[Rfam]
RNA sequence: GUGCAAAUAACCUGAAACCCCUCUUGGAUAUGUGAAUACCUGACCGGUGGUAAGUUAUGUUACUCAAAACAUAGAGCAGGCUAA
Numbered sequence: 001g002u003g004c005a006a007a008u009a010a011c012c013u014g015a016a017a018c019c020c021c022u023c024u025u026g027g028a029u030a031u032g033u034g035a036a037u038a039c040c041u042g043a044c045c046g047g048u049g050g051u052a053a054g055u056u057a058u059g060u061u062a063c064u065c066a067a068a069a070c071a072u073a074g075a076g077c078a079g080g081c082u083a084a
Stems, first nucleotide, its partner, number of pairs: 017051003022043002029038003055074007

The family of this 84-nucleotide RNA sequence from Phocaeicola massiliensis is "Bacteroides-1 RNA". Taxonomically the source falls in Phocaeicola massiliensis (Bacteria, Bacteroidia, Bacteroidaceae, Phocaeicola). The family's RNA type in Rfam is small RNA.